The family of this 143-nucleotide RNA from Enhydra lutris is "Small nucleolar RNA SNORA67".
[Rfam]
RNA sequence: AUCCAAGCUGAUUCCCUCUCCAGGGGGCCUGCUCGUGCCCCUCUUCAGGAAAGCAGCAACUUGGAAGAAAAUCUGGCAUGCCUGAGGUUGCUGGGGGAGAGGACAUGUCUGUUUCCUUUGACUUCCUUUGGCUGCCUACACUC
Dot-bracket structure: .((((((.((........(((.((((((........)))))).....)))......)).))))))..........(..(....(.(......(.(((..............))).).......).)....).)..........

The family's consensus secondary structure was predicted with RNAalifold. It is annotated as an H/ACA-box small nucleolar RNA. Rfam describes the family as follows. U67 belongs to the H/ACA class of snoRNAs which are thought to guide the sites of modification of uridines to pseudouridines.